[Rfam]
RNA sequence: CGGGGACAACCGACGUCAGGGAAUUCGGCAAAUUGGUCCCGUAAGUUCGCGAUAAGGGAUGCCUGCCCCGGAAUGGGGCAGGUCUCAGUAACCCGGAGGCUCCGACUGUCUAAUAACAACAUAGGUGACCGCAAAUCCGCAAGGACUCGUACGGUCACUGAAUCCUGCCCAGUGCAGGUAUCUGAACACCCAGUACAAUGGGACGAAGGACCUGUUAACGGCGGGGGUAACUAUGACCCUCUUAAGGUAGCGUAGUACCUUGCCGCUUCAGUAGCGGCUUGCAUGAAUGGAUCAACGAGAGCCUCACUGUCCCGACGUUGGGCCCGGUGAACUGUACGUUCCAGUGCGGAGUCUGGAGA
Numbered sequence: 001c002g003g004g005g006a007c008a009a010c011c012g013a014c015g016u017c018a019g020g021g022a023a024u025u026c027g028g029c030a031a032a033u034u035g036g037u038c039c040c041g042u043a044a045g046u047u048c049g050c051g052a053u054a055a056g057g058g059a060u061g062c063c064u065g066c067c068c069c070g071g072a073a074u075g076g077g078g079c080a081g082g083u084c085u086c087a088g089u090a091a092c093c094c095g096g097a098g099g100c101u102c103c104g105a106c107u108g109u110c111u112a113a114u115a116a117c118a119a120c121a122u123a124g125g126u127g128a129c130c131g132c133a134a135a136u137c138c139g140c141a142a143g144g145a146c147u148c149g150u151a152c153g154g155u156c157a158c159u160g161a162a163u164c165c166u167g168c169c170c171a172g173u174g175c176a177g178g179u180a181u182c183u184g185a186a187c188a189c190c191c192a193g194u195a196c197a198a199u200g201g202g203a204c205g206a207a208g209g210a211c212c213u214g215u216u217a218a219c220g221g222c223g224g225g226g227g228u229a230a231c232u233a234u235g236a237c238c239c240u241c242u243u244a245a246g247g248u249a250g251c252g253u254a255g256u257a258c259c260u261u262g263c264c265g266c267u268u269c270a271g272u273a274g275c276g277g278c279u280u281g282c283a284u285g286a287a288u289g290g291a292u293c294a295a296c297g298a299g300a301g302c303c304u305c306a307c308u309g310u311c312c313c314g315a316c317g318u319u320g321g322g323c324c325c326g327g328u329g330a331a332c333u334g335u336a337c338g339u340u341c342c343a344g345u346g347c348g349g350a351g352u353c354u355g356g357a358g359a
Stems, first nucleotide, its partner, number of pairs: 001326004010321008019312003036060005045050001061083009084088001096305007103297002107121003124159008132149001136145003162292004167222003172219002174215005181210003189202004223241006242246001262278006340357005
Shown here is a 359-nucleotide part of an RNA from Salarchaeum sp. JOR-1, a member of the family "Archaeal large subunit ribosomal RNA". The match comes from Rfam's covariance-model search (2877 bits). The organism belongs to Salarchaeum, within Archaea. The base pairs follow the family's consensus structure, which is taken from published work.